[Rfam]
RNA: Plastid-rps12 3UTR RNA
Organism: Gossypium lobatum
RNA sequence: GGUUCCCAUUGGCUCAGAUCCAAUCUUGGAAUUUAAGAUGAGAAAAAAUUCCCAAUUGGUAGCAAAUGCUUAUCCAUUAAGAAGGGAAAAUCCUAU
Numbered sequence: 001g002g003u004u005c006c007c008a009u010u011g012g013c014u015c016a017g018a019u020c021c022a023a024u025c026u027u028g029g030a031a032u033u034u035a036a037g038a039u040g041a042g043a044a045a046a047a048a049u050u051c052c053c054a055a056u057u058g059g060u061a062g063c064a065a066a067u068g069c070u071u072a073u074c075c076a077u078u079a080a081g082a083a084g085g086g087a088a089a090a091u092c093c094u095a096u
Stems, first nucleotide, its partner, number of pairs: 009023004051086003055077002058074005